[Rfam]
RNA: Small Cajal body specific RNA 4
RNA sequence: GUUGGAGGACCAAGAAGGCUGAGUCUGAUGAAGCAAGACUUUGCUGAUACACUCCUCCUAGACAAAGGGGUGGUGAGAGCAGCCCUUUUCGGAGAAACCCACAGGGCGGACUGUACUACCCAACAUUG
Numbered sequence: 001g002u003u004g005g006a007g008g009a010c011c012a013a014g015a016a017g018g019c020u021g022a023g024u025c026u027g028a029u030g031a032a033g034c035a036a037g038a039c040u041u042u043g044c045u046g047a048u049a050c051a052c053u054c055c056u057c058c059u060a061g062a063c064a065a066a067g068g069g070g071u072g073g074u075g076a077g078a079g080c081a082g083c084c085c086u087u088u089u090c091g092g093a094g095a096a097a098c099c100c101a102c103a104g105g106g107c108g109g110a111c112u113g114u115a116c117u118a119c120c121c122a123a124c125a126u127u128g
Stems, first nucleotide, its partner, number of pairs: 002061002004058006017045003021041006068121004078112002080109001082107005091100002